[Rfam]
Nucleotides: 531
Stems, first nucleotide, its partner, number of pairs: 008523009022509001023473002027444002029441005035434002044107004048061003067100006076088003111120003127141005148179001149177005159166002189196002200227004210218002230427004238260003270365004280358004294343002300316001302315004319323001325337003377398007405421005460467002
Number, partner (000 for none) and nucleotide at each position: 001000c002000u003000a004000c005000u006000a007000c008523g009522c010521c011520g012519g013518c014517c015516g016515g017000u018000g019000a020000a021000u022509g023473g024472c025000u026000c027444g028443g029441c030440u031439c032438g033437g034000a035434a036433g037000c038000c039000g040000a041000u042000g043000a044107a045106g046105g047104a048061c049060g050059u051000g052000c053000c054000a055000a056000g057000c058000u059050g060049c061048g062000a063000u064000a065000a066000g067100c068099c069098u070097g071096a072095g073000g074000g075000a076088c077087c078086c079000g080000c081000a082000c083000g084000g085000a086078g087077g088076g089000g090000a091000a092000g093000a094000a095072c096071u097070c098069a099068g100067g101000a102000u103000u104047u105046c106045c107044u108000a109000a110000u111120g112119g113118g114000a115000a116000u117000c118113c119112c120111c121000a122000u123000c124000g125000c126000a127141a128140u129139u130138g131137c132000u133000g134000u135000g136000c137131g138130c139129a140128a141127u142000g143000g144000g145000g146000a147000a148179c149177g150176c151175c152174g153173g154000g155000a156000a157000c158000u159166g160165a161000a162000a163000c164000a165160u166159c167000u168000u169000a170000g171000u172000a173153c174152c175151g176150g177149u178000a179148g180000g181000a182000a183000c184000a185000g186000a187000a188000a189196g190195c191000a192000a193000u194000c195190g196189c197000g198000a199000u200227g201226u202225c203224g204000u205000c206000a207000g208000u209000a210218a211217c212000c213000g214000c215000g216000g217211g218210u219000g220000a221000a222000a223000u224203c225202g226201a227200c228000a229000u230427a231426g232425c233424c234000c235000a236000a237000a238260c239259c240258g241000a242000a243000g244000c245000c246000u247000u248000c249000u250000g251000g252000g253000c254000a255000a256000u257000g258240u259239g260238g261000u262000g263000u264000u265000c266000g267000g268000g269000c270365u271364g272363g273362c274000u275000u276000u277000c278000a279000u280358c281357a282356c283355c284000a285000g286000a287000a288000c289000g290000u291000u292000c293000a294343u295342g296000u297000g298000a299000a300316g301000u302315c303314c304313c305312u306000u307000g308000g309000a310000a311000u312305a313304g314303g315302g316300c317000g318000c319323g320000a321000g322000a323319c324000a325337g326336g327335g328000u329000g330000a331000a332000a333000g334000c335327c336326c337325c338000g339000u340000a341000u342295c343294a344000u345000g346000g347000a348000c349000a350000a351000g352000u353000a354000c355283g356282g357281u358280g359000u360000g361000c362273g363272c364271c365270a366000g367000u368000a369000c370000c371000a372000g373000a374000g375000u376000a377398g378397c379396a380395g381394g382393g383392g384000u385000u386000g387000g388000a389000u390000a391000u392383c393382c394381c395380u396379u397378g398377u399000g400000a401000a402000c403000a404000a405421a406420g407419c408418a409417g410000g411000c412000a413000u414000c415000g416000a417409c418408u419407g420406c421405u422000a423000a424233g425232g426231c427230u428000a429000a430000a431000u432000a433036c434035u435000a436000c437033c438032c439031g440030a441029g442000a443028c444027c445000g446000a447000u448000a449000g450000u451000g452000a453000a454000c455000a456000a457000g458000u459000a460467a461466c462000g463000u464000g465000a466461g467460u468000g469000a470000a471000c472024g473023c474000u475000g476000a477000a478000a479000a480000g481000c482000a483000c484000c485000c486000c487000a488000a489000g490000a491000a492000g493000g494000g495000a496000g497000g498000u499000g500000c501000a502000a503000u504000a505000g506000g507000g508000c509022c510000u511000g512000a513000a514000a515016u516015c517014g518013g519012u520011c521010g522009g523008u524000u525000a526000u527000a528000g529000a530000g531000c
Rfam assigns this 531-nucleotide part of an RNA from Salinarchaeum sp. IM2453 to the family "Archaeal large subunit ribosomal RNA". Clan: LSU clan. It scores 2849 bits against the family's covariance model. Taxonomically the source falls in Salinarchaeum (Archaea, Methanobacteriati, Methanobacteriota, Halobacteriales). The base pairs follow the family's consensus structure, which is taken from published work.